RNA sequence: UAUGUAGGGCGCACGGCGGAUGCCUUGGCACAGGAAGCCGAUGAAGGACGCGGCAAGCUGCGAUAAUCCGCGGUUAGGGGCACACACCCUUCGACCCGCGGGUCUCCGAAUGGGCGAACCCGCCAGGAGAUGUCCUGGCAUCCCCCUUGGGAACUCAUACCUUGGGGGAGGACAACCCGGGGAACUGAAACAUCUAAGUACCCGGAGGAGAAGAAAUCAACUGCGAGAUUCCCCGAGUAGCGGCGAGCGAAAGGGGACCGAUGGCCAAACCGGCGAGCGGGCGGGCGCCAGCCUAUACCGCCGCCGGGGUUGCAGGGCCUCCCGCCCGGGAGCUGGCGCUCCCGGCGGGGAUCCAUCCAGGGGAGCCGAACGGCAUGGGAGGGCCGGCGGCACAGGGUUACAGCCCCGUAGGCGCACCCUGGGAUGGACCCCGGCGGAGGUCCCUGAGUAGGGCCGGGCACGUGAAACCCGGUCCGAAGCAGGGGGGACCACCCUCCAAGCCUGAAUACUCUCCUGUGACCGAUAGCGCACAAGUACCGUGAGGGAAAGGUGAAAAGCACCCCGGGAGGGGAGUGAAACAGUACCUGAAACCGUGCGCCC
Numbered sequence: 001u002a003u004g005u006a007g008g009g010c011g012c013a014c015g016g017c018g019g020a021u022g023c024c025u026u027g028g029c030a031c032a033g034g035a036a037g038c039c040g041a042u043g044a045a046g047g048a049c050g051c052g053g054c055a056a057g058c059u060g061c062g063a064u065a066a067u068c069c070g071c072g073g074u075u076a077g078g079g080g081c082a083c084a085c086a087c088c089c090u091u092c093g094a095c096c097c098g099c100g101g102g103u104c105u106c107c108g109a110a111u112g113g114g115c116g117a118a119c120c121c122g123c124c125a126g127g128a129g130a131u132g133u134c135c136u137g138g139c140a141u142c143c144c145c146c147u148u149g150g151g152a153a154c155u156c157a158u159a160c161c162u163u164g165g166g167g168g169a170g171g172a173c174a175a176c177c178c179g180g181g182g183a184a185c186u187g188a189a190a191c192a193u194c195u196a197a198g199u200a201c202c203c204g205g206a207g208g209a210g211a212a213g214a215a216a217u218c219a220a221c222u223g224c225g226a227g228a229u230u231c232c233c234c235g236a237g238u239a240g241c242g243g244c245g246a247g248c249g250a251a252a253g254g255g256g257a258c259c260g261a262u263g264g265c266c267a268a269a270c271c272g273g274c275g276a277g278c279g280g281g282c283g284g285g286c287g288c289c290a291g292c293c294u295a296u297a298c299c300g301c302c303g304c305c306g307g308g309g310u311u312g313c314a315g316g317g318c319c320u321c322c323c324g325c326c327c328g329g330g331a332g333c334u335g336g337c338g339c340u341c342c343c344g345g346c347g348g349g350g351a352u353c354c355a356u357c358c359a360g361g362g363g364a365g366c367c368g369a370a371c372g373g374c375a376u377g378g379g380a381g382g383g384c385c386g387g388c389g390g391c392a393c394a395g396g397g398u399u400a401c402a403g404c405c406c407c408g409u410a411g412g413c414g415c416a417c418c419c420u421g422g423g424a425u426g427g428a429c430c431c432c433g434g435c436g437g438a439g440g441u442c443c444c445u446g447a448g449u450a451g452g453g454c455c456g457g458g459c460a461c462g463u464g465a466a467a468c469c470c471g472g473u474c475c476g477a478a479g480c481a482g483g484g485g486g487g488a489c490c491a492c493c494c495u496c497c498a499a500g501c502c503u504g505a506a507u508a509c510u511c512u513c514c515u516g517u518g519a520c521c522g523a524u525a526g527c528g529c530a531c532a533a534g535u536a537c538c539g540u541g542a543g544g545g546a547a548a549g550g551u552g553a554a555a556a557g558c559a560c561c562c563c564g565g566g567a568g569g570g571g572a573g574u575g576a577a578a579c580a581g582u583a584c585c586u587g588a589a590a591c592c593g594u595g596c597g598c599c600c
Base pairs, nucleotide, nucleotide: 007600008599009598010597011596012595013594014593015592016591022585023550024549027521028520029518030517031516032515033514034513035512036510037509038171039170046107047106048105049062050061051060068101069100070099071098072097073096077089078088079087112121113120114119122139123138124137125136126135127134128133142168143167144166145165146164149161150160176207177205178204179203180202181201187194188193217226218225229506230257231256232255233254234253240248241247263502264501265500270307271306272305273304274303275302314445315444316443318440319439320438321437322436352428353427354426355425356424357423358422360420361419362418363417365413366412367411371386372385373384374383389393395407396406397405451475452474453473454472455471456470457469458468482497483496484495485494486493537544538543560571561570562569563568